Rfam assigns this 141-nucleotide sequence from Brachypodium distachyon to the family "Small nucleolar RNA F1/F2/snoR5a".
From the family's description: This family contains F1, F2 and snoR5a sequences, all of which are members of the the H/ACA class of snoRNA that guide the sites of modification of uridines to pseudouridines.
RNA sequence: AAAUGCCAUUGGUAUCUGACACGGAGUCAAUUUUGUGAUUCCCUGUCUCGAAACAUGGCAGAAAACAAGCGGGAACGGACCUUUGCGACACUGGCUGCUAGUACUUAUGAGCUUCCAGUUACUUUAUAUCCGUUUACAUGG
Numbered sequence: 001a002a003a004u005g006c007c008a009u010u011g012g013u014a015u016c017u018g019a020c021a022c023g024g025a026g027u028c029a030a031u032u033u034u035g036u037g038a039u040u041c042c043c044u045g046u047c048u049c050g051a052a053a054c055a056u057g058g059c060a061g062a063a064a065a066c067a068a069g070c071g072g073g074a075a076c077g078g079a080c081c082u083u084u085g086c087g088a089c090a091c092u093g094g095c096u097g098c099u100a101g102u103a104c105u106u107a108u109g110a111g112c113u114u115c116c117a118g119u120u121a122c123u124u125u126a127u128a129u130c131c132g133u134u135u136a137c138a139u140g141g
Base pairs, nucleotide, nucleotide: 004060005059006058007057008056009055018047019046020045021044023042024041025040026039027038028037029036074134075133076132077131078130090119091118092117093116094115097112098111099110